[Rfam]
RNA sequence: AAUGGCAAGGGAUGAAUAUUUAUCUUAUCCUACACUCUGAUGAACCCUGUGGAUUCAAAUCUUCGCUUAUUGAUAUUCUGAUGCCAUU
Number, nucleotide and partner (000 for none) at each position: 001a000002a000003u086004g085005g084006c083007a082008a000009g000010g000011g000012a000013u000014g000015a000016a000017u000018a000019u000020u000021u000022a000023u000024c000025u000026u000027a000028u000029c000030c000031u000032a000033c000034a000035c000036u000037c000038u000039g000040a000041u000042g000043a000044a000045c000046c000047c000048u000049g000050u000051g000052g000053a000054u000055u000056c000057a000058a000059a000060u000061c000062u000063u000064c000065g000066c000067u000068u000069a000070u000071u000072g000073a000074u000075a000076u000077u000078c000079u000080g000081a000082u007083g006084c005085c004086a003087u000088u000
RNA: Small nucleolar RNA R16